[Rfam]
The family of this 86-nucleotide RNA sequence from Marinomonas mediterranea is "sRNA-Xcc1". By type it is a small RNA. For this family Rfam cites "Genome-wide transcriptome analysis of the plant pathogen Xanthomonas identifies sRNAs with putative virulence functions" (Schmidtke et al., Nucleic Acids Res, 2011).
Nucleotides: 086
Base pairs, nucleotide, nucleotide: 001078002077003076004075005074006073007072008071009070012044013043014042015041017039018038027034028033046063047062048061049060050059
Number, partner (000 for none) and nucleotide at each position: 001078g002077u003076c004075g005074g006073g007072a008071g009070g010000g011000c012044a013043g014042c015041a016000g017039u018038u019000a020000u021000a022000c023000a024000a025000u026000a027034c028033c029000c030000u031000u032000g033028g034027g035000g036000a037000a038018a039017g040000c041015u042014g043013c044012u045000c046063g047062c048061g049060g050059u051000u052000u053000c054000u055000u056000a057000c058000a059050g060049c061048c062047g063046u064000u065000u066000c067000g068000a069000a070009c071008c072007u073006c074005c075004c076003g077002a078001c079000a080000c081000c082000a083000u084000u085000u086000u